[Rfam]
RNA sequence: CUUUCGCAAAGUUGGCACGCUGCCUGCUUUAGAGACAUCGACAUUACAUAAAGGCAUCGCCCUCAACGACGAGCGCAGUGCCUCCCGGCAGAUCGGGACAAGGACAAAGGCGUCCUCGCUAGGUAACUAGCGGGACGCC
Numbered sequence: 001c002u003u004u005c006g007c008a009a010a011g012u013u014g015g016c017a018c019g020c021u022g023c024c025u026g027c028u029u030u031a032g033a034g035a036c037a038u039c040g041a042c043a044u045u046a047c048a049u050a051a052a053g054g055c056a057u058c059g060c061c062c063u064c065a066a067c068g069a070c071g072a073g074c075g076c077a078g079u080g081c082c083u084c085c086c087g088g089c090a091g092a093u094c095g096g097g098a099c100a101a102g103g104a105c106a107a108a109g110g111c112g113u114c115c116u117c118g119c120u121a122g123g124u125a126a127c128u129a130g131c132g133g134g135a136c137g138c139c
Stems, first nucleotide, its partner, number of pairs: 012107003015027003054081004060075001063072002083098005109139007117132006
Dot-bracket structure: ...........((((((.......)))..........................((((..(..((......))..)..)))).(((((......)))))......))).(((((((.((((((....)))))))))))))

Rfam assigns this 139-nucleotide RNA from Pseudomonas sp. 8AS to the family "Pseudomonas sRNA P11". This small RNA (sRNA) was computationally identified in the genome of the opportunistic pathogen Pseudomonas aeruginosa and its expression verified by northern blot analysis. Lineage of the source: Bacteria > Pseudomonadati > Gammaproteobacteria > Pseudomonadales > Pseudomonas. Pairs were carried over by alignment from the consensus structure, which was predicted with RNAalifold. A reference for the family is Livny et al. (2006), "Identification of 17 Pseudomonas aeruginosa sRNAs and prediction of sRNA-encoding genes in 10 diverse pathogens using the bioinformatic tool sRNAPredict2", Nucleic Acids Res.